[Rfam]
RNA sequence: CGAGAGAUGCAGUCGAUAUCGACUGGCGGCAGGAGCGGGGGAACCAAGGUAGUCGCGACAUCGGCACUGUCGAUGUCUUGGGGUGAAGCCAUGCCUGAUCAAGGCGAGGCCGGGCCACCCGCCCGAACCCGACAGCUAACUUCGUAGGCGCCCGACGAGGUAAUCA
Number, nucleotide and partner (000 for none) at each position: 001c032002g000003a000004g000005a000006g000007a000008u000009g000010c000011a000012g000013u000014c000015g000016a000017u000018a000019u000020c000021g000022a000023c000024u000025g000026g000027c000028g000029g000030c000031a000032g001033g000034a000035g145036c144037g143038g142039g141040g140041g000042a000043a000044c000045c080046a079047a078048g077049g076050u075051a074052g000053u000054c000055g000056c000057g000058a000059c000060a000061u000062c000063g000064g000065c000066a000067c000068u000069g000070u000071c000072g000073a000074u051075g050076u049077c048078u047079u046080g045081g130082g129083g128084u000085g000086a000087a000088g000089c109090c108091a000092u106093g105094c104095c000096u000097g000098a000099u000100c000101a000102a000103g000104g094105c093106g092107a000108g090109g089110c000111c000112g124113g123114g122115c121116c000117a000118c000119c000120c000121g115122c114123c113124c112125g000126a000127a000128c083129c082130c081131g000132a000133c000134a000135g000136c000137u000138a000139a000140c040141u039142u038143c037144g036145u035146a000147g000148g000149c000150g000151c000152c000153c000154g000155a000156c000157g000158a000159g000160g000161u000162a000163a000164u000165c000166a000